[Rfam]
RNA sequence: CCUCCUGUUAACGCACAAUUAACACUUCGCGGUUAAGGUGGGGUUAUUCAGAUUUUUCUGAAUUUUUCAGAGCGGUUCUCCCUCUGUUUGACGCCUCCCUGUUAACUUCGAGAGCCGUGGUCCACGGCUCUUUUUCU
Numbered sequence: 001c002c003u004c005c006u007g008u009u010a011a012c013g014c015a016c017a018a019u020u021a022a023c024a025c026u027u028c029g030c031g032g033u034u035a036a037g038g039u040g041g042g043g044u045u046a047u048u049c050a051g052a053u054u055u056u057u058c059u060g061a062a063u064u065u066u067u068c069a070g071a072g073c074g075g076u077u078c079u080c081c082c083u084c085u086g087u088u089u090g091a092c093g094c095c096u097c098c099c100u101g102u103u104a105a106c107u108u109c110g111a112g113a114g115c116c117g118u119g120g121u122c123c124a125c126g127g128c129u130c131u132u133u134u135u136c137u
Base pairs, nucleotide, nucleotide: 001043002042003041004040006013020035021034022033023032047062048061049060050059070084071083072082074081075080090103091102092101093100110132111131112130113129114128115127116126117125118124119123
This 137-nucleotide sequence from Devosia sp. Root685 belongs to the Rfam family "Alphaproteobacterial sRNA BjrC1505".
The match comes from Rfam's covariance-model search (69 bits).
On this family, see Madhugiri et al., RNA Biol 2012: "Small RNAs of the Bradyrhizobium/Rhodopseudomonas lineage and their analysis".
Rfam classes the family as a small RNA.